[Rfam]
RNA: tRNA
RNA sequence: GUGGGUGUAACUCGGUGGUAGAGUGUCACCUUCCCAAGGUGAAGGUCGCGAGUUCGAAUCUUGUCUCACGCU
Numbered sequence: 001g002u003g004g005g006u007g008u009a010a011c012u013c014g015g016u017g018g019u020a021g022a023g024u025g026u027c028a029c030c031u032u033c034c035c036a037a038g039g040u041g042a043a044g045g046u047c048g049c050g051a052g053u054u055c056g057a058a059u060c061u062u063g064u065c066u067c068a069c070g071c072u
Stems, first nucleotide, its partner, number of pairs: 001071003005067001007065001010024004026042005048064005